Small nucleolar RNA SNORA53: a 241-nucleotide RNA sequence from Leptobrachium leishanense. The match comes from Rfam's covariance-model search (181 bits). The base pairs follow the family's consensus structure, which was predicted with RNAalifold. The family has 28 seed sequences and 1,090 matches in Rfam 15.1. Its family is annotated with RNA processing and nucleolus in the Gene Ontology.

RNA sequence: CACAUGCUCCCUUAGAUCCAUCUUUGUGGAUGUCUUACUGGUGCUGAGUUCUGCUCGUAUUUACUAGCAGUUCCAGUUCAGCGAUAUCCAGCAACUUUCUGGUUGUACAGUCAAAGAUGCUUGAGUCAUUGGCAUGUCAGAUCAAUAUACCUGUGUGGCAGCUUUAAUGUUCUGAUGGCAGUGGCUGCAACCUGUUGUAUGCCAAGUUUCACCAUCAGGGCUUUGUUGUCAUAUGGACACU
Number, nucleotide and partner (000 for none) at each position: 001c000002a137003c136004a135005u134006g133007c132008u131009c000010c000011c125012u124013u123014a122015g121016a000017u000018c000019c119020a118021u117022c116023u115024u114025u113026g112027u090028g089029g088030a087031u086032g085033u000034c000035u000036u000037a000038c081039u080040g079041g000042u000043g077044c076045u075046g074047a000048g073049u000050u000051c070052u069053g068054c067055u000056c000057g064058u000059a000060u000061u000062u000063a000064c057065u000066a000067g054068c053069a052070g051071u000072u000073c048074c046075a045076g044077u043078u000079c040080a039081g038082c000083g000084a000085u032086a031087u030088c029089c028090a027091g106092c105093a104094a103095c102096u101097u000098u000099c000100u000101g096102g095103u094104u093105g092106u091107a000108c000109a000110g000111u000112c026113a025114a024115a023116g022117a021118u020119g019120c000121u015122u014123g013124a012125g011126u000127c000128a000129u000130u000131g008132g007133c006134a005135u004136g003137u002138c000139a000140g000141a000142u000143c000144a000145a000146u000147a000148u000149a000150c000151c236152u235153g234154u233155g232156u000157g000158g229159c000160a227161g226162c225163u000164u000165u000166a000167a000168u000169g000170u000171u219172c218173u217174g216175a215176u214177g213178g212179c000180a000181g000182u211183g210184g209185c000186u000187g202188c201189a200190a000191c000192c000193u000194g000195u000196u000197g000198u000199a000200u189201g188202c187203c000204a000205a000206g000207u000208u000209u184210c183211a182212c178213c177214a176215u175216c174217a173218g172219g171220g000221c000222u000223u000224u000225g162226u161227u160228g000229u158230c000231a000232u155233a154234u153235g152236g151237a000238c000239a000240c000241u000